This 132-nucleotide RNA from Dipodomys ordii belongs to the Rfam family "Small nucleolar RNA SNORA42/SNORA80 family". A reference for the family is Schattner et al. (2006), "A computational screen for mammalian pseudouridylation guide H/ACA RNAs", RNA. Rfam classes the family as an H/ACA-box small nucleolar RNA.
RNA sequence: GCAUGAAUUGAAUUUAUAGCAUGCCUCUCCCCCUGAGUCUUUCAUAGUGUCCCACGCCAGAGCAAACUGUAGUCCGAACCACUGCCUGGCCUCUACCUGGGGGUUACUGGCACUGAAGGGGAUUCCAUGGUG
Number, nucleotide and partner (000 for none) at each position: 001g057002c056003a000004u054005g052006a000007a050008u049009u000010g000011a000012a000013u000014u047015u046016a045017u044018a000019g042020c000021a040022u000023g038024c000025c035026u000027c000028u000029c000030c000031c000032c000033c000034u000035g025036a000037g000038u023039c000040u021041u000042u019043c000044a017045u016046a015047g014048u000049g008050u007051c000052c005053c000054a004055c000056g002057c001058c000059a000060g000061a000062g000063c000064a000065a000066a000067c000068u000069g000070u000071a124072g123073u122074c121075c120076g000077a000078a000079c000080c115081a114082c000083u000084g000085c110086c109087u106088g105089g104090c103091c102092u101093c000094u000095a000096c000097c000098u000099g000100g000101g092102g091103g090104u089105u088106a087107c000108u000109g086110g085111c000112a000113c000114u081115g080116a000117a000118g000119g000120g075121g074122a073123u072124u071125c000126c000127a000128u000129g000130g000131u000132g000
Rfam describes the family as follows. The members of this family belong to the H/ACA class of snoRNAs that guide the sites of modification of uridines to pseudouridines. Human ACA42 (SNORA42) was cloned from HeLa cells by immunoprecipitation with anti-GAR1 antibody. Gene Ontology terms of the family: nucleolus and RNA processing.